RNA sequence: GUUUUGAAUGUGAGAAUUGGAGGCAACCGAACCAUUUGUAGAAACCUUUCAGAAAAAAACCACAAAAGGUUCGGUUUCCUCCAAUAUCUUACCUUCAAGGG
Dot-bracket structure: ...(((((..((((.((((((.(.((((((.((..................................)).)))))).).))))))..))))..)))))...
Rfam assigns this 101-nucleotide RNA sequence from Tetracentron sinense to the family "MIR2275 microRNA precursor family". Gene Ontology terms of the family: RISC complex and miRNA-mediated post-transcriptional gene silencing.